[Rfam]
A member of the RNA family "Small nucleolar RNA U3" from Bos taurus, 223 nucleotides long.
RNA sequence: AAGACUGUACUUUUGAGGAUCGUUUCUGUUGUUUGUUACUCUAGAAGUUUCUCUGAACAUGUAGAGCACCUGAAAGCAUGAGGAGGAGACAUACUUCACACAGCAGUCUCUCCUCAGCGUGAAGCUGGCUCGUGGUGUUGCUUCUGCAGUUGCUGUUUGCUGUUGAUGAUUGUUCUCUUCCUCCUUUGGGAGAGUAAGAGGGAGAGAAUGCUGUCUGGGUGGU
Numbered sequence: 001a002a003g004a005c006u007g008u009a010c011u012u013u014u015g016a017g018g019a020u021c022g023u024u025u026c027u028g029u030u031g032u033u034u035g036u037u038a039c040u041c042u043a044g045a046a047g048u049u050u051c052u053c054u055g056a057a058c059a060u061g062u063a064g065a066g067c068a069c070c071u072g073a074a075a076g077c078a079u080g081a082g083g084a085g086g087a088g089a090c091a092u093a094c095u096u097c098a099c100a101c102a103g104c105a106g107u108c109u110c111u112c113c114u115c116a117g118c119g120u121g122a123a124g125c126u127g128g129c130u131c132g133u134g135g136u137g138u139u140g141c142u143u144c145u146g147c148a149g150u151u152g153c154u155g156u157u158u159g160c161u162g163u164u165g166a167u168g169a170u171u172g173u174u175c176u177c178u179u180c181c182u183c184c185u186u187u188g189g190g191a192g193a194g195u196a197a198g199a200g201g202g203a204g205a206g207a208a209u210g211c212u213g214u215c216u217g218g219g220u221g222g223u
Stems, first nucleotide, its partner, number of pairs: 002040002006035002009032002016027004049065002054061001075223001077221003103211003107207008117173003127161003133155004137150005176197001178194003182190003
From the family's description: Small nucleolar RNAs (snoRNAs) are involved in the processing and modification of rRNA in the nucleolus. There are two main classes of snoRNAs: the box C/D class, and the box H/ACA class. U3 snoRNA is a member of the box C/D class. Rfam links the family to the GO terms RNA processing and nucleolus. The family has 87 seed sequences and 19,072 matches in Rfam 15.1. Clan: U3 clan. The literature on the family includes a 2010 paper in RNA Biol by Marz and Stadler, "Comparative analysis of eukaryotic U3 snoRNA".